[Rfam]
The family of this 76-nucleotide RNA from Butyrivibrio sp. INlla14 is "c-di-GMP-I riboswitch aptamer".
Taxonomically the source falls in Butyrivibrio (Bacteria, Bacillati, Clostridia, Lachnospirales).
The base pairs follow the family's consensus structure, which is taken from published work.
RNA sequence: AAAUAUUUUUGGCAAAACAGGCGAAAGCCUGCGGCGCAAAGCUAUAGGGACUUUAACAUGUCAGCCAGCUGCAUUC
Numbered sequence: 001a002a003a004u005a006u007u008u009u010u011g012g013c014a015a016a017a018c019a020g021g022c023g024a025a026a027g028c029c030u031g032c033g034g035c036g037c038a039a040a041g042c043u044a045u046a047g048g049g050a051c052u053u054u055a056a057c058a059u060g061u062c063a064g065c066c067a068g069c070u071g072c073a074u075u076c
Base pairs, nucleotide, nucleotide: 012037013036018031019030020029021028022027040070041069042068043067047066048065049062050061051060